[Rfam]
Nucleotides: 187
Stems, first nucleotide, its partner, number of pairs: 002186002005183010016172013030158002032155009044143002047140006057130004066121006086103005
Number, partner (000 for none) and nucleotide at each position: 001000u002186g003185c004000u005183u006182u007181a008180g009179g010178u011177c012176c013175u014174u015000g016172g017171u018170g019169u020168u021167u022166u023165g024164u025163u026162u027161u028160a029000g030158u031157c032155c033154u034153g035152c036151a037150a038149a039148a040147u041000a042000u043000g044143u045142u046000c047140a048139u049138g050137u051136u052135g053000a054000a055000a056000c057130u058129g059128g060127u061000c062000c063000c064000u065000c066121u067120a068119a069118u070117a071116u072000u073000c074000a075000u076000u077000u078000u079000a080000g081000u082000c083000c084000u085000u086103a087102u088101u089100u090099u091000g092000a093000g094000g095000g096000a097000c098000u099090a100089a101088a102087a103086u104000c105000a106000a107000a108000u109000a110000u111000u112000c113000u114000a115000c116071a117070u118069a119068u120067u121066a122000a123000a124000a125000u126000a127060a128059u129058c130057a131000a132000u133000u134000u135052u136051a137050a138049u139048a140047u141000g142045a143044a144000u145000c146000a147040a148039u149038u150037u151036u152035g153034c154033a155032g156000g157031g158030a159000c160028u161027a162026g163025a164024a165023c166022a167021a168020a169019a170018c171017a172016c173000c174014a175013a176012g177011g178010a179009c180008c181007u182006a183005a184000c185003g186002c187000a
MIR2630 microRNA precursor family: a 187-nucleotide sequence from Trifolium medium. The family's consensus secondary structure was predicted with RNAalifold. Gene Ontology terms of the family: RISC complex and miRNA-mediated post-transcriptional gene silencing.